[Rfam]
RNA sequence: GUCGGGAGGGCGACUAAUACAAUACUCGAAAGAGAAAUAAGUCCGCAGUACGUUUACUGUUCUGAACCUCCUGGCACUACCAU
Numbered sequence: 001g002u003c004g005g006g007a008g009g010g011c012g013a014c015u016a017a018u019a020c021a022a023u024a025c026u027c028g029a030a031a032g033a034g035a036a037a038u039a040a041g042u043c044c045g046c047a048g049u050a051c052g053u054u055u056a057c058u059g060u061u062c063u064g065a066a067c068c069u070c071c072u073g074g075c076a077c078u079a080c081c082a083u
Stems, first nucleotide, its partner, number of pairs: 001075009012043003015039002025034003045060005
RNA: sRNA-Xcc1
Organism: Thorsellia anophelis